[Rfam]
RNA sequence: GUGAUUUAUUAUAUUGGUUUUGGUUGCAUUAAUCGAUGGUUGUACAUCGCACGCAUAAUAACUCAAUACACCUCAUUAGAUAAAUAUAUACAAGUUUUAGAUUUUUAGGACAGUAUAACAUUUAUGGCAUCAC
Numbered sequence: 001g002u003g004a005u006u007u008a009u010u011a012u013a014u015u016g017g018u019u020u021u022g023g024u025u026g027c028a029u030u031a032a033u034c035g036a037u038g039g040u041u042g043u044a045c046a047u048c049g050c051a052c053g054c055a056u057a058a059u060a061a062c063u064c065a066a067u068a069c070a071c072c073u074c075a076u077u078a079g080a081u082a083a084a085u086a087u088a089u090a091c092a093a094g095u096u097u098u099a100g101a102u103u104u105u106u107a108g109g110a111c112a113g114u115a116u117a118a119c120a121u122u123u124a125u126g127g128c129a130u131c132a133c
Base pairs, nucleotide, nucleotide: 001133002132003131004130005129012068013067014066015065016064017062018061019060025055026054027053034049035048036047037046038045080125081124082123083122084121085120087117088116089115090114091113094111095110096109097108098107099106100105
Dot-bracket structure: (((((......((((((((.....(((......(((((......)))))...)))....))).)))))...........((((((.(((((..(((((((....))))))).)))))..))))))...)))))
A member of the RNA family "LcrF intergenic thermometer" from Yersinia pestis, 133 nucleotides long. Gene Ontology terms of the family: regulation of translation and response to temperature stimulus. Taxonomically the source falls in Yersinia pestis (Bacteria, Pseudomonadota, Yersiniaceae, Yersinia pseudotuberculosis complex). Rfam's curators write: Intergenic two hairpin RNA thermometer (usually RNAT are in the 5'UTR). Rfam's curators put it in the seed alignment. Rfam classes the family as an RNA thermoregulator.